[Rfam]
Nucleotides: 388
Stems, first nucleotide, its partner, number of pairs: 001384010012330007020037005042372003046369005051231004058264004063227005068082005083097001084095004098222002103220002105216002120161002122157003126153005169187006189211001190209008235286004245277006255269005293312008
Number, partner (000 for none) and nucleotide at each position: 001384a002383g003382a004381g005380g006379a007378g008377a009376c010375c011000a012330g013329g014328c015327g016326g017325c018324c019000g020037c021036c022035g023034g024033g025000u026000u027000u028000c029000a030000c031000c032000u033024c034023c035022c036021g037020g038000a039000g040000g041000a042372a043371a044370g045000u046369c047368c048367g049366a050365a051231c052230a053229c054228c055000g056000c057000a058264g059263g060262g061261c062000a063227g064226g065225g066224u067223g068082c069081u070080c071079c072078g073000u074000a075000a076000c077000g078072c079071g080070g081069a082068g083097u084095c085094g086093c087092g088000g089000c090000a091000a092087c093086g094085c095084g096000a097083a098222g099221g100000c101000a102000a103220g104219u105216g106215c107000a108000a109000c110000a111000g112000a113000a114000a115000g116000u117000a118000u119000a120161c121160c122157g123156c124155c125000u126153g127152g128151c129150a130149g131000u132000c133000u134000c135000g136000c137000u138000u139000u140000u141000g142000a143000g144000c145000g146000g147000g148000c149130c150129u151128g152127c153126c154000c155124g156123g157122u158000a159000a160121g161120g162000g163000u164000g165000a166000a167000a168000c169187g170186g171185u172184g173183c174182g175000g176000u177000a178000a179000g180000a181000g182174c183173g184172c185171a186170c187169c188000a189211g190209u191208u192207c193206c194205c195204c196203g197202g198000g199000c200000g201000a202197u203196c204195g205194g206193g207192g208191a209190a210000g211189c212000u213000g214000g215106g216105u217000a218000a219104a220103c221099c222098c223067c224066a225065c226064c227063c228054g229053g230052u231051g232000c233000a234000a235286g236285a237284c238283c239000a240000a241000a242000u243000a244000g245277g246276g247275g248274a249273g250272c251000u252000c253000a254000u255269g256268c257267a258266g259265c260000g261061g262060c263059c264058c265259g266258c267257u268256g269255u270000a271000g272250g273249c274248u275247c276246c277245c278000g279000g280000g281000u282000a283238g284237g285236u286235u287000g288000c289000a290000a291000g292000a293312g294311g295310c296309g297308u298307c299306g300305g301000g302000c303000a304000a305300c306299c307298g308297g309296c310295g311294c312293c313000c314000u315000u316000a317000g318000a319000u320000g321000a322000a323000u324018g325017g326016c327015c328014g329013c330012c331000g332000c333000c334000c335000u336000g337000g338000c339000c340000g341000g342000g343000g344000c345000g346000a347000c348000c349000c350000g351000a352000c353000c354000a355000g356000g357000g358000a359000a360000c361000a362000g363000a364000a365050u366049u367048c368047g369046g370044c371043u372042u373000a374000c375010g376009g377008u378007u379006u380005c381004c382003u383002u384001u385000g386000a387000c388000c
Background: The record is a 388-nucleotide sequence from Desulfatibacillum alkenivorans, which matches "Bacterial RNase P class A" in Rfam. Pairs were carried over by alignment from the consensus structure, which is taken from published work. From the family's description: Ribonuclease P (RNase P) is a ubiquitous endoribonuclease, found in archaea, bacteria and eukarya as well as chloroplasts and mitochondria. Rfam's curators put it in the seed alignment. Rfam classes the family as a ribozyme.